TPP riboswitch aptamer (THI element): a 98-nucleotide sequence from Vibrio navarrensis. The base pairs follow the family's consensus structure, which is taken from published work. The match comes from Rfam's covariance-model search (76 bits).
Nucleotides: 098
Stems, first nucleotide, its partner, number of pairs: 006086005011048004017026003033041003054079004061072003
Number, partner (000 for none) and nucleotide at each position: 001000c002000a003000g004000a005000u006086a007085u008084a009083g010082u011048c012047g013046g014045g015000g016000a017026g018025c019024c020000u021000u022000u023000a024019g025018g026017c027000u028000g029000a030000g031000a032000u033041c034040g035039c036000a037000a038000a039035g040034c041033g042000a043000g044000a045014c046013c047012c048011g049000u050000u051000g052000a053000a054079c055078c056077u057076g058000a059000u060000g061072c062071a063070g064000u065000u066000a067000a068000u069000a070063c071062u072061g073000a074000c075000g076057u077056a078055g079054g080000g081000a082010a083009c084008u085007a086006u087000a088000u089000g090000c091000g092000u093000g094000u095000u096000c097000a098000c